[Rfam]
RNA sequence: UGGUGAGUAAGGCUCCCAGAAAGAAUGAUGUCCGUGGACGCGGGAUGGGAUCAAGUAAGGGGAGGUUCACCA
Numbered sequence: 001u002g003g004u005g006a007g008u009a010a011g012g013c014u015c016c017c018a019g020a021a022a023g024a025a026u027g028a029u030g031u032c033c034g035u036g037g038a039c040g041c042g043g044g045a046u047g048g049g050a051u052c053a054a055g056u057a058a059g060g061g062g063a064g065g066u067u068c069a070c071c072a
Base pairs, nucleotide, nucleotide: 001072002071003070004069005068006067013064014063015062016060017059031044032043033042034041035040
RNA: DUF3800-X RNA